[Rfam]
Nucleotides: 139
Stems, first nucleotide, its partner, number of pairs: 004065005009059001014042006077133011091120004
Number, partner (000 for none) and nucleotide at each position: 001000u002000c003000a004065g005064c006063a007062g008061g009059a010000u011000a012000g013000u014042g015041u016040g017039u018038a019037u020000c021000g022000g023000a024000u025000u026000u027000g028000c029000g030000c031000u032000u033000u034000u035000u036000c037019a038018u039017g040016u041015g042014u043000c044000u045000u046000u047000u048000g049000c050000c051000g052000a053000a054000a055000g056000u057000g058000u059009u060000u061008c062007c063006u064005g065004c066000a067000a068000c069000a070000u071000c072000a073000a074000a075000u076000u077133g078132a079131g080130g081129a082128a083127a084126g085125u086124g087123g088000g089000c090000a091120g092119u093118u094117g095000g096000g097000u098000u099000a100000a101000g102000c103000u104000u105000a106000u107000u108000u109000g110000c111000u112000u113000u114000c115000u116000c117094c118093a119092a120091c121000a122000a123087u124086c125085a126084u127083u128082u129081u130080c131079c132078u133077c134000u135000c136000a137000c138000g139000u

The family of this 139-nucleotide sequence from Eragrostis curvula is "small nucleolar RNA snoR135". Lineage of the source: Eukaryota > Viridiplantae > Streptophyta > Eragrostidinae > Eragrostis. The family's RNA type in Rfam is H/ACA-box small nucleolar RNA.